[Rfam]
RNA: Small nucleolar RNA SNORD53/SNORD92
Organism: Panurus biarmicus
RNA sequence: UUGCUAUGAUGAUAACCCACUUGGUUUCGCUUGCUGCUGAUGUGCAGUGGGGACACUUCUACUUGGCUGUCUGAGCAG
Numbered sequence: 001u002u003g004c005u006a007u008g009a010u011g012a013u014a015a016c017c018c019a020c021u022u023g024g025u026u027u028c029g030c031u032u033g034c035u036g037c038u039g040a041u042g043u044g045c046a047g048u049g050g051g052g053a054c055a056c057u058u059c060u061a062c063u064u065g066g067c068u069g070u071c072u073g074a075g076c077a078g
Stems, first nucleotide, its partner, number of pairs: 001078004